RNA sequence: CACAGGGGAGGAGUCCCCAGAAGCGCGGCGUCCCAUCCGGUCGCCUCGACCGUCGCGCGGUGCCAAUGGCGAGACCGACCCUCCGUGAG
Numbered sequence: 001c002a003c004a005g006g007g008g009a010g011g012a013g014u015c016c017c018c019a020g021a022a023g024c025g026c027g028g029c030g031u032c033c034c035a036u037c038c039g040g041u042c043g044c045c046u047c048g049a050c051c052g053u054c055g056c057g058c059g060g061u062g063c064c065a066a067u068g069g070c071g072a073g074a075c076c077g078a079c080c081c082u083c084c085g086u087g088a089g
Base pairs, nucleotide, nucleotide: 001089003087004086006084007083008082010080011079013064015062023058024057025056026055027054028053029052030051039076040075041072042071043070044069045068
Rfam assigns this 89-nucleotide RNA sequence to the family "c-di-GMP-II-GAG riboswitch aptamer". A reference for the family is Weinberg et al. (2017), "Bioinformatic analysis of riboswitch structures uncovers variant classes with altered ligand specificity", Proc Natl Acad Sci U S A. Gene Ontology terms of the family: cyclic-di-GMP binding and regulation of gene expression. The sequence is in the family's curated seed alignment. The family is grouped with related families in Rfam's "c-di-GMP_II riboswitch clan".